[Rfam]
RNA sequence: AUUUCUAAAUCGCUGAAACCUGAUGGUACGGGGGAACCGUUUUUAUGGAUUGAUACAUAAUCCAAGGGGUGAAUCCUUGCAAAAGAGGUAGGGCUACUCACAGGCCCGAAUCCGACAGCUAACCUCGUAAGCGUUAUAUGAGAAGGAAG
Number, nucleotide and partner (000 for none) at each position: 001a000002u000003u000004u000005c000006u000007a000008a000009a000010u000011c133012g132013c131014u130015g000016a000017a000018a027019c026020c025021u000022g000023a000024u000025g020026g019027u018028a128029c127030g126031g125032g124033g123034g000035a000036a000037c000038c066039g000040u000041u000042u000043u000044u000045a000046u000047g000048g000049a000050u000051u000052g000053a000054u000055a000056c000057a000058u000059a000060a000061u000062c000063c000064a000065a000066g038067g113068g112069g111070u000071g000072a000073a000074u000075c088076c087077u086078u085079g000080c000081a000082a000083a000084a000085g078086a077087g076088g075089u000090a000091g107092g106093g105094c104095u000096a000097c000098u000099c000100a000101c000102a000103g000104g094105c093106c092107c091108g000109a000110a000111u069112c068113c067114g000115a000116c000117a000118g000119c000120u000121a000122a000123c033124c032125u031126c030127g029128u028129a000130a014131g013132c012133g011134u000135u000136a000137u000138a000139u000140g000141a000142g000143a000144a000145g000146g000147a000148a000149g000
Overview: A member of the RNA family "c-di-AMP riboswitch aptamer (ydaO/yuaA leader)" from Bacillus pseudomycoides, 149 nucleotides long. The base pairs follow the family's consensus structure.